[Rfam]
Notes:
This 147-nucleotide RNA from Clostridium sp. CAG:138 belongs to the Rfam family "THF (Tetrahydrofolate) riboswitch aptamer". Lineage of the source: Bacteria > Bacillati > Clostridia > Clostridiaceae > Clostridium. The family's consensus secondary structure is taken from published work. The literature on the family includes a 2010 paper in Chem Biol by Ames et al., "A eubacterial riboswitch class that senses the coenzyme tetrahydrofolate". Rfam's curators write: Tetrahydrofolate (THF) riboswitch was first reported for Ames et al. as an RNA motif in 5' untranslated (5'-UTR)regions of folate transport and biosynthesis genes in Firmicutes genomes. It scores 66 bits against the family's covariance model.
Nucleotides: 147
Stems, first nucleotide, its partner, number of pairs: 001147005010134010020123003029060002032058008043140003047136001064120003
Number, partner (000 for none) and nucleotide at each position: 001147a002146a003145c004144a005143g006000a007000g008000u009000a010134g011133g012132u013131g014130g015129c016128a017127g018126u019125g020123a021122g022121u023000u024000g025000g026000c027000a028000a029060g030059u031000g032058c033057c034056g035055g036054g037053g038052a039051u040000a041000c042000a043140g044139g045138g046000a047136g048000u049000u050000g051039a052038u053037u054036c055035c056034c057033g058032g059030a060029c061000g062000a063000a064120a065119a066118c067000u068000c069000a070000u071000g072000u073000g074000c075000g076000u077000u078000c079000g080000g081000u082000a083000a084000a085000u086000a087000c088000a089000a090000a091000g092000a093000a094000u095000g096000c097000u098000g099000u100000g101000c102000c103000g104000u105000g106000c107000g108000c109000a110000g111000a112000a113000u114000g115000u116000u117000u118066g119065u120064u121022g122021c123020u124000g125019u126018g127017c128016u129015g130014u131013c132012g133011c134010c135000g136047c137000a138045u139044c140043c141000c142000g143005c144004u145003g146002u147001u